This 163-nucleotide sequence from Streptomyces sp. NRRL S-1521 belongs to the Rfam family "c-di-AMP riboswitch aptamer (ydaO/yuaA leader)".

[Rfam]
RNA sequence: GGGCAGUCAUCGCCGAGUCCCCGUACGGCGCGAGCCAGGGGAGCCGGGGACCCACACGUCCCUUGGGGUGAAUCGGGAACCUUGCCGCAGGGCGAGGGACUCGUAGGAGACCUUCCUGCUCCGAACCCGUCAGCUAACCCGGUAGGCGAGAGGGAAGGAAAGG
Numbered sequence: 001g002g003g004c005a006g007u008c009a010u011c012g013c014c015g016a017g018u019c020c021c022c023g024u025a026c027g028g029c030g031c032g033a034g035c036c037a038g039g040g041g042a043g044c045c046g047g048g049g050a051c052c053c054a055c056a057c058g059u060c061c062c063u064u065g066g067g068g069u070g071a072a073u074c075g076g077g078a079a080c081c082u083u084g085c086c087g088c089a090g091g092g093c094g095a096g097g098g099a100c101u102c103g104u105a106g107g108a109g110a111c112c113u114u115c116c117u118g119c120u121c122c123g124a125a126c127c128c129g130u131c132a133g134c135u136a137a138c139c140c141g142g143u144a145g146g147c148g149a150g151a152g153g154g155a156a157g158g159a160a161a162g163g
Stems, first nucleotide, its partner, number of pairs: 011148004018042005043143006053065002066128003074103004106122004